About this RNA: Shown here is a 77-nucleotide RNA from Elainella sp. C42_A2020_010, a member of the family "CyVA-1 RNA". The source organism's lineage runs through Bacteria, Bacillati, Oculatellales, Oculatellaceae and Elainella.

[Rfam]
RNA sequence: GCACUGGCAGGGAGUUGUACCGCUGUGUCCCUUUGCUGGAUCUCGUAGGAGAGCGACGCCAGAGAUCCAGACAGUGC
Numbered sequence: 001g002c003a004c005u006g007g008c009a010g011g012g013a014g015u016u017g018u019a020c021c022g023c024u025g026u027g028u029c030c031c032u033u034u035g036c037u038g039g040a041u042c043u044c045g046u047a048g049g050a051g052a053g054c055g056a057c058g059c060c061a062g063a064g065a066u067c068c069a070g071a072c073a074g075u076g077c
Stems, first nucleotide, its partner, number of pairs: 001077006009032004037069008
Dot-bracket structure: ((((((..((((................))))....((((((((.................))))))))..))))))
It scores 84 bits against the family's covariance model.